The family of this 88-nucleotide sequence from Pollutimonas thiosulfatoxidans is "Glycine riboswitch aptamer".
RNA sequence: CUACACAGAGUGGGAGAGCGUCGUUUAUCGACCGCCGAAGGCGCAAUUCGCCCAGAAUCGCUCAGGCACCCCGUACCUCUCUUGUAUU
Numbered sequence: 001c002u003a004c005a006c007a008g009a010g011u012g013g014g015a016g017a018g019c020g021u022c023g024u025u026u027a028u029c030g031a032c033c034g035c036c037g038a039a040g041g042c043g044c045a046a047u048u049c050g051c052c053c054a055g056a057a058u059c060g061c062u063c064a065g066g067c068a069c070c071c072c073g074u075a076c077c078u079c080u081c082u083u084g085u086a087u088u
Base pairs, nucleotide, nucleotide: 007082008081009080010079012077013076020032021031022030023029034067035066036065037063038062041061042060043059047054
Background: The organism belongs to Pollutimonas, within Bacteria. Pairs were carried over by alignment from the consensus structure.